[Rfam]
RNA sequence: UCUAUCGUGAGGUAGUGGCUGAAGGAAGCGUGUAGCGAAACUUUGAACCUAUGGACAAGAACUUGAUAAGAAGGCUAUGAGGUGGACAAGGUAGCAAUUGAUACUGAAAUCCAAAGGUAAACGUAAAACCGAAGUAGUAAAUCAAGAGGUAAUGAAGUGAAAGAUUAGAAU
Numbered sequence: 001u002c003u004a005u006c007g008u009g010a011g012g013u014a015g016u017g018g019c020u021g022a023a024g025g026a027a028g029c030g031u032g033u034a035g036c037g038a039a040a041c042u043u044u045g046a047a048c049c050u051a052u053g054g055a056c057a058a059g060a061a062c063u064u065g066a067u068a069a070g071a072a073g074g075c076u077a078u079g080a081g082g083u084g085g086a087c088a089a090g091g092u093a094g095c096a097a098u099u100g101a102u103a104c105u106g107a108a109a110u111c112c113a114a115a116g117g118u119a120a121a122c123g124u125a126a127a128a129c130c131g132a133a134g135u136a137g138u139a140a141a142u143c144a145a146g147a148g149g150u151a152a153u154g155a156a157g158u159g160a161a162a163g164a165u166u167a168g169a170a171u
Stems, first nucleotide, its partner, number of pairs: 002015005028171001031168001036163001040158006047150004062146006074138003078131001081130003084112003090105004
Overview:
Group II catalytic intron D1-D4-3: a 171-nucleotide RNA. Pairs were carried over by alignment from the consensus structure. The sequence is in the family's curated seed alignment. Rfam's curators write: Group II introns are found in rRNA, tRNA and mRNA of organelles in fungi, plants and protists, and also in mRNA in bacteria.